[Rfam]
RNA sequence: AUUUUCCAUUCGCUGAGUUCCAAAUGUGGAAACGGGGGAACCACUGUAAGCUUAAUUUGCAUGUUAUGCGAUUAAGUAAGCAGAUUGAGUAUCAGGGGUGAAUCAUAGACAGCAAACAGCCGUUUGCGUCUGCGUAGGGCGACUCUCACGUCCGAAUCCGUCAGCUAACCUCGUAAGCGUAAGAGAGGUAACGA
Numbered sequence: 001a002u003u004u005u006c007c008a009u010u011c012g013c014u015g016a017g018u019u020c021c022a023a024a025u026g027u028g029g030a031a032a033c034g035g036g037g038g039a040a041c042c043a044c045u046g047u048a049a050g051c052u053u054a055a056u057u058u059g060c061a062u063g064u065u066a067u068g069c070g071a072u073u074a075a076g077u078a079a080g081c082a083g084a085u086u087g088a089g090u091a092u093c094a095g096g097g098g099u100g101a102a103u104c105a106u107a108g109a110c111a112g113c114a115a116a117c118a119g120c121c122g123u124u125u126g127c128g129u130c131u132g133c134g135u136a137g138g139g140c141g142a143c144u145c146u147c148a149c150g151u152c153c154g155a156a157u158c159c160g161u162c163a164g165c166u167a168a169c170c171u172c173g174u175a176a177g178c179g180u181a182a183g184a185g186a187g188g189u190a191a192c193g194a
Base pairs, nucleotide, nucleotide: 011179012178013177014176018031019030020029032174033173034172035171036170037169042095096159097158098157104134106132107131108130109129110128137153138152139151140150

Shown here is a 194-nucleotide RNA from Paenibacillus pectinilyticus, a member of the family "c-di-AMP riboswitch aptamer (ydaO/yuaA leader)".
It scores 85 bits against the family's covariance model.
NCBI's taxonomy places the organism under Bacteria, Bacillati, Caryophanales, Paenibacillaceae, Paenibacillus.